Record summary
The record is a 37-nucleotide sequence from Platysternon megacephalum, which matches "L31-Actinobacteria ribosomal protein leader" in Rfam. Taxonomically the source falls in Platysternon (Eukaryota, Bilateria, Amniota, Testudinata). The match comes from Rfam's covariance-model search (47 bits).

[Rfam]
RNA sequence: UCGGUCCCGGUUCACGUCAAUGUGACGACCCGGCACC
Numbered sequence: 001u002c003g004g005u006c007c008c009g010g011u012u013c014a015c016g017u018c019a020a021u022g023u024g025a026c027g028a029c030c031c032g033g034c035a036c037c
Stems, first nucleotide, its partner, number of pairs: 003037003007033004015027005